[Rfam]
RNA sequence: UCCUUAUCAAGAAAGGCUGAGGGAAAUGGCCCUUUGAAGCCUUGACAACCUCUCUCGUUUUGAGAAAAGGUGCCAACUCCAUCAUGGUAAAAAAAUCAUGAAAGAUAAGUG
Numbered sequence: 001u002c003c004u005u006a007u008c009a010a011g012a013a014a015g016g017c018u019g020a021g022g023g024a025a026a027u028g029g030c031c032c033u034u035u036g037a038a039g040c041c042u043u044g045a046c047a048a049c050c051u052c053u054c055u056c057g058u059u060u061u062g063a064g065a066a067a068a069g070g071u072g073c074c075a076a077c078u079c080c081a082u083c084a085u086g087g088u089a090a091a092a093a094a095a096u097c098a099u100g101a102a103a104g105a106u107a108a109g110u111g
Stems, first nucleotide, its partner, number of pairs: 001111001003109006013043005021032003026082004044074001046072002049070002051065004078103001083100006
This 111-nucleotide RNA from Paraflavisolibacter caeni belongs to the Rfam family "SAM riboswitch aptamer (S box leader)". The base pairs follow the family's consensus structure, which is taken from published work. NCBI's taxonomy places the organism under Bacteria, Pseudomonadati, Chitinophagia, Chitinophagales, Paraflavisolibacter.